Rfam assigns this 423-nucleotide part of an RNA from Sporisorium reilianum to the family "Eukaryotic large subunit ribosomal RNA". Its family is annotated with structural constituent of ribosome and ribosome in the Gene Ontology. The organism belongs to Sporisorium reilianum, within Eukaryota.
Nucleotides: 423
Stems, first nucleotide, its partner, number of pairs: 023054001024052005034041002064071002075102004085093002105321004112148001114146001117143002120140002123137004154262002156259004161255001163253002166246007174234007184200001186199004203207001210220002271292007298315005355362002378389004
Number, partner (000 for none) and nucleotide at each position: 001000c002000g003000g004000c005000c006000u007000c008000a009000g010000a011000u012000u013000g014000g015000u016000a017000g018000g019000a020000c021000u022000a023054c024052c025051c026050g027049c028048u029000g030000a031000a032000c033000u034041u035040a036000a037000g038000c039000a040035u041034a042000u043000c044000a045000a046000u047000a048028a049027g050026c051025g052024g053000a054023g055000g056000a057000a058000a059000a060000g061000a062000a063000a064071c065070u066000a067000a068000c069000a070065a071064g072000g073000a074000u075102u076101c077100c078099c079000c080000u081000a082000g083000u084000a085093a086092c087000g088000g089000c090000g091000a092086g093085u094000g095000a096000a097000g098000a099078g100077g101076g102075a103000a104000g105321a106320g107319c108318c109000c110000a111000a112148g113000a114146u115000u116000g117143a118142a119000a120140g121139c122000u123137g124136g125135c126134g127000u128000c129000u130000u131000c132000g133000a134126c135125g136124u137123c138000c139121g140120c141000a142118u143117u144000g145000u146114a147000a148112u149000c150000u151000c152000a153000a154262g155261a156259a157258g158257c159256g160000u161255u162000u163253u164252c165000c166246g167245c168244u169243u170242c171241g172240g173000a174234c175233c176232a177231u178230g179229c180228c181000u182000a183000a184200g185000u186199c187198c188197c189196u190000u191000g192000g193000a194000a195000a196189a197188g198187g199186g200184c201000a202000u203207c204000a205000u206000a207203g208000a209000g210220g211219g212000u213000g214000a215000u216000a217000a218000u219211c220210c221000c222000g223000u224000a225000c226000a227000u228180g229179g230178c231177a232176u233175g234174g235000a236000g237000c238000g239000c240172c241171c242170g243169a244168a245167g246166c247000u248000u249000u250000g251000u252164g253163a254000u255161a256159c257158g258157u259156u260000u261155u262154c263000u264000a265000a266000g267000a268000g269000u270000c271292g272291a273290g274289u275288u276287g277286u278000u279000u280000g281000g282000g283000a284000a285000u286277g287276c288275a289274g290273c291272u292271c293000a294000a295000a296000a297000u298315g299314g300313g301312u302311g303000g304000u305000a306000a307000a308000u309000g310000c311302c312301a313300u314299c315298u316000a317000a318108g319107g320106c321105u322000a323000a324000a325000u326000a327000u328000u329000g330000g331000g332000g333000a334000g335000a336000g337000a338000c339000c340000g341000a342000u343000a344000g345000c346000g347000a348000a349000c350000a351000a352000g353000u354000a355362c356361a357000g358000u359000g360000a361356u362355g363000g364000a365000a366000a367000g368000a369000u370000g371000a372000a373000a374000a375000g376000a377000a378389c379388u380387u381386u382000g383000a384000a385000a386381a387380g388379a389378g390000a391000g392000u393000u394000a395000a396000a397000c398000a399000g400000u401000a402000c403000g404000u405000g406000a407000a408000a409000u410000u411000g412000c413000c414000a415000a416000a417000a418000g419000g420000g421000a422000a423000g